RNA sequence: GUGAAACGAUUCACAAACAAACAUAUACCCCUUUGUUUGACCGUGAAAAAUUUCUCCCAUCCCCUUUGUUGUCUUUAAUGACACAAAAAAGCCCUGGUCCCGUUGACCGGGGCUUUUU
Numbered sequence: 001g002u003g004a005a006a007c008g009a010u011u012c013a014c015a016a017a018c019a020a021a022c023a024u025a026u027a028c029c030c031c032u033u034u035g036u037u038u039g040a041c042c043g044u045g046a047a048a049a050a051u052u053u054c055u056c057c058c059a060u061c062c063c064c065u066u067u068g069u070u071g072u073c074u075u076u077a078a079u080g081a082c083a084c085a086a087a088a089a090a091g092c093c094c095u096g097g098u099c100c101c102g103u104u105g106a107c108c109g110g111g112g113c114u115u116u117u118u
Stems, first nucleotide, its partner, number of pairs: 003054004011046004018039006070085003089115011

A member of the RNA family "RNA Staph. aureus E (RoxS)" from Bacillus sp. THAF10, 118 nucleotides long.
It scores 98 bits against the family's covariance model.
The family's RNA type in Rfam is small RNA.
On this family, see Geissmann et al., Nucleic Acids Res 2009: "A search for small noncoding RNAs in Staphylococcus aureus reveals a conserved sequence motif for regulation".
It was shown to be regulated by the presence of nitric oxide (NO). In Bacillus subtilis it controls expression of genes with functions related to oxidative stress and oxidation-reduction reactions and it was renamed RoxS (for related to oxidative stress).